[Rfam]
RNA sequence: AUGAGGUCUCUUUCUACACAUAUAUCGAAUUAAAUUUAAACUAAUAAGUACGUUAAAUCAAAAUAAAGGAGCAAUAACCACUUUCUUGUUCUAGCAAGAGUGUUGGUAUUGCUCCUUU
Numbered sequence: 001a002u003g004a005g006g007u008c009u010c011u012u013u014c015u016a017c018a019c020a021u022a023u024a025u026c027g028a029a030u031u032a033a034a035u036u037u038a039a040a041c042u043a044a045u046a047a048g049u050a051c052g053u054u055a056a057a058u059c060a061a062a063a064u065a066a067a068g069g070a071g072c073a074a075u076a077a078c079c080a081c082u083u084u085c086u087u088g089u090u091c092u093a094g095c096a097a098g099a100g101u102g103u104u105g106g107u108a109u110u111g112c113u114c115c116u117u118u
Stems, first nucleotide, its partner, number of pairs: 009024001011022001013020001065118012080103002083100005